Rfam assigns this 191-nucleotide sequence from Felis catus to the family "U2 spliceosomal RNA". U2 is a small nuclear RNA (snRNA) component of the spliceosome (involved in pre-mRNA splicing). Complementary binding between U2 snRNA (in an area lying towards the 5' end but 3' to hairpin I) and the branchpoint sequence (BPS) of the intron results the bulging out of an unpaired adenosine, on the BPS, which initiates a nucleophilic attack at the intronic 5' splice site, thus starting the first of two transesterification reactions that mediate splicing.
[Rfam]
RNA sequence: AUCGAUUCUCAGCCUUUUGGCUAUGAUCAGGUGUCGUCUCUGUUCUUGUCAGUUUAAUAUCUGAUACGUCCUCUAUCUGAGGACAAUAUAUUACUUGGAUUUUUGGAGCAGGGAGAUGGAAUAGGAGCUUGCUCCGUCCACUCCACGCAUUGACCUGGUAUUGCAGCACUUCCAGGAAUGGUGCACACACA
Numbered sequence: 001a002u003c004g005a006u007u008c009u010c011a012g013c014c015u016u017u018u019g020g021c022u023a024u025g026a027u028c029a030g031g032u033g034u035c036g037u038c039u040c041u042g043u044u045c046u047u048g049u050c051a052g053u054u055u056a057a058u059a060u061c062u063g064a065u066a067c068g069u070c071c072u073c074u075a076u077c078u079g080a081g082g083a084c085a086a087u088a089u090a091u092u093a094c095u096u097g098g099a100u101u102u103u104u105g106g107a108g109c110a111g112g113g114a115g116a117u118g119g120a121a122u123a124g125g126a127g128c129u130u131g132c133u134c135c136g137u138c139c140a141c142u143c144c145a146c147g148c149a150u151u152g153a154c155c156u157g158g159u160a161u162u163g164c165a166g167c168a169c170u171u172c173c174a175g176g177a178a179u180g181g182u183g184c185a186c187a188c189a190c191a
Base pairs, nucleotide, nucleotide: 007026008025011022012021013020014019047066048065049064050063051062052061068084069083070082071081072080073079112144113143114142115141118138119137124135125134126133127132147184148183149182150181151180152179154176155175156174157173158172
For this family Rfam cites "A conserved pseudouridine modification in eukaryotic U2 snRNA induces a change in branch-site architecture" (Newby and Greenbaum, RNA, 2001). Gene Ontology terms of the family: mRNA branch site recognition, U2 snRNP and pre-mRNA branch point binding.